[Rfam]
RNA sequence: CUGCAAUGAUGGCAGUGUUUUUCAAUAACAGCAGUUCACCUAUUUGGAUACUUUGGAUCUGAGUGA
Dot-bracket structure: .(((...(.((...........)).)....................................))).